Rfam assigns this 91-nucleotide RNA from Labeo rohita to the family "Small nucleolar RNA SNORD60". The base pairs follow the family's consensus structure, which was predicted with PFOLD. It is annotated as a C/D-box small nucleolar RNA. The match comes from Rfam's covariance-model search (50 bits). Rfam 15.1 lists 825 matches to the family in 373 species.
RNA sequence: AGCCACUGAUGACGACUUAAAAAAUACUUUUCUGACAUCUCUAAUGAAUGCUGCAUUACAGCAGCUGAUUAUAAAUUCUGGUCUGAGGCUC
Numbered sequence: 001a002g003c004c005a006c007u008g009a010u011g012a013c014g015a016c017u018u019a020a021a022a023a024a025u026a027c028u029u030u031u032c033u034g035a036c037a038u039c040u041c042u043a044a045u046g047a048a049u050g051c052u053g054c055a056u057u058a059c060a061g062c063a064g065c066u067g068a069u070u071a072u073a074a075a076u077u078c079u080g081g082u083c084u085g086a087g088g089c090u091c
Stems, first nucleotide, its partner, number of pairs: 001090004050062004